[Rfam]
RNA sequence: GGCCGGGUGUGCGAGGAAUACAAUACCGGGCAACCGGGAAUAACUCCGCCGACUUACGCCGGUUUAGAGCGCCUGGCCGCCCACGA
Numbered sequence: 001g002g003c004c005g006g007g008u009g010u011g012c013g014a015g016g017a018a019u020a021c022a023a024u025a026c027c028g029g030g031c032a033a034c035c036g037g038g039a040a041u042a043a044c045u046c047c048g049c050c051g052a053c054u055u056a057c058g059c060c061g062g063u064u065u066a067g068a069g070c071g072c073c074u075g076g077c078c079g080c081c082c083a084c085g086a
Stems, first nucleotide, its partner, number of pairs: 001078009013046003017041001026037003048063004
sRNA-Xcc1: an 86-nucleotide sequence from Nitrosomonas halophila. For this family Rfam cites "sRNA-Xcc1, an integron-encoded transposon- and plasmid-transferred trans-acting sRNA, is under the positive control of the key virulence regulators HrpG and HrpX of Xanthomonas campestris pathovar campestris" (Chen et al., RNA Biol, 2011). It scores 59 bits against the family's covariance model. The source organism's lineage runs through Bacteria, Pseudomonadati, Betaproteobacteria, Nitrosomonadales and Nitrosomonas. It is annotated as a small RNA.